[Rfam]
Shown here is a 223-nucleotide sequence from Ferrimicrobium acidiphilum, a member of the family "Group II catalytic intron D1-D4-6". From the family's description: Group II introns are found in rRNA, tRNA and mRNA of organelles in fungi, plants and protists, and also in mRNA in bacteria. The source organism's lineage runs through Bacteria, Bacillati, Acidimicrobiia, Acidimicrobiaceae and Ferrimicrobium acidiphilum. The literature on the family includes a 2001 paper in EMBO J by Chu et al., "Control of branch-site choice by a group II intron". The base pairs follow the family's consensus structure. The match comes from Rfam's covariance-model search (210 bits).
RNA sequence: AAAGAGCUCUACAUCGAAGGUCUAGCGAACCACGAUGACCCCGAGUCAUGCGUCGGCGUCCGCGAGGGCGCAGGCGAAGCGUUGACAGGGGCACGUACAGGCCGGGCUAUUGAGCCGCGAAAUCCGGGAGAUCGGGGCGCCGACGCUGUCUACAUAAGUGGAAGGCAACACCACCAGCAGCGCUAUCGCGAGUUGUUGGUGGGCCCCGCGCGGUCAGAGAACC
Numbered sequence: 001a002a003a004g005a006g007c008u009c010u011a012c013a014u015c016g017a018a019g020g021u022c023u024a025g026c027g028a029a030c031c032a033c034g035a036u037g038a039c040c041c042c043g044a045g046u047c048a049u050g051c052g053u054c055g056g057c058g059u060c061c062g063c064g065a066g067g068g069c070g071c072a073g074g075c076g077a078a079g080c081g082u083u084g085a086c087a088g089g090g091g092c093a094c095g096u097a098c099a100g101g102c103c104g105g106g107c108u109a110u111u112g113a114g115c116c117g118c119g120a121a122a123u124c125c126g127g128g129a130g131a132u133c134g135g136g137g138c139g140c141c142g143a144c145g146c147u148g149u150c151u152a153c154a155u156a157a158g159u160g161g162a163a164g165g166c167a168a169c170a171c172c173a174c175c176a177g178c179a180g181c182g183c184u185a186u187c188g189c190g191a192g193u194u195g196u197u198g199g200u201g202g203g204c205c206c207c208g209c210g211c212g213g214u215c216a217g218a219g220a221a222c223c
Stems, first nucleotide, its partner, number of pairs: 012037005019031003023191001025189002039091004045086004049081002051076004056071006111217001112215001114214006133208006139166003144160004171202011